A member of the RNA family "Rhodo-rpoB RNA" from Rhodobacter sp. 24-YEA-8, 95 nucleotides long. It scores 71 bits against the family's covariance model.
RNA sequence: GGUUCGGGAGCCGUCUGACGGGACAGAUGGCAGGUAUGGAACCGGAUAUCCCCUCUCGCCAGUUGGCGUGUGCCUGUGCCCCGACGGGUCGCGCG
Number, nucleotide and partner (000 for none) at each position: 001g043002g042003u041004u040005c039006g000007g000008g000009a000010g031011c030012c029013g028014u027015c026016u025017g024018a000019c000020g000021g000022g000023a000024c017025a016026g015027a014028u013029g012030g011031c010032a000033g000034g000035u000036a000037u000038g000039g005040a004041a003042c002043c001044g000045g000046a000047u000048a000049u000050c000051c000052c000053c000054u000055c000056u000057c000058g000059c000060c000061a000062g000063u000064u000065g000066g000067c095068g094069u093070g092071u091072g089073c088074c087075u086076g085077u000078g000079c000080c000081c000082c000083g000084a000085c076086g075087g074088g073089u072090c000091g071092c070093g069094c068095g067